[Rfam]
RNA sequence: GGAUGGAAUUCUGGAGACGACUAUUGAAAUAUAUAGUGGCCGAAGGUGCAAGCGAAAGCUAAUCUCUCAGGCAAAAAGACAGAAAAAAAGUA
Dot-bracket structure: ........(((((......((((..........)))).(((((..(.(...((....))....).))).))).......)))))........
Rfam assigns this 92-nucleotide RNA sequence from Candidatus Epulonipiscioides saccharophilum to the family "Glycine riboswitch aptamer". NCBI's taxonomy places the organism under Bacteria, Bacillati, Clostridia, Lachnospiraceae, Candidatus Epulonipiscioides. It scores 56 bits against the family's covariance model. Pairs were carried over by alignment from the consensus structure.